Shown here is a 74-nucleotide sequence from Lathyrus oleraceus, a member of the family "Plastid-ycf2 5UTR RNA".
Nucleotides: 074
Base pairs, nucleotide, nucleotide: 004073005072006071007070008069010025011024012022013021039068040067041066043065044064045063046062047061048060049059050058
Number, partner (000 for none) and nucleotide at each position: 001000g002000a003000u004073c005072a006071u007070c008069c009000u010025g011024u012022g013021g014000u015000a016000u017000u018000g019000a020000a021013c022012c023000u024011a025010c026000g027000a028000u029000u030000u031000c032000u033000c034000c035000a036000a037000u038000u039068a040067u041066g042000a043065g044064u045063u046062g047061g048060g049059u050058g051000c052000u053000u054000u055000a056000a057000c058050c059049a060048u061047u062046c063045a064044g065043u066041c067040a068039u069008g070007g071006a072005u073004g074000c
Source information
Rfam describes the family as follows. Plastid ycf2 is a non-coding RNA (ncRNA) recognised in plastids. It was found in the prime untranslated region (5UTR) of ycf2 genes, it presents a tRNA-like motif which suggests it can be involved in mRNA maturation, particularly involved in defining the precise 5' end of the transcript. The source organism's lineage runs through Eukaryota, Pentapetalae, fabids, Papilionoideae and Lathyrus. By type it is a cis-regulatory element.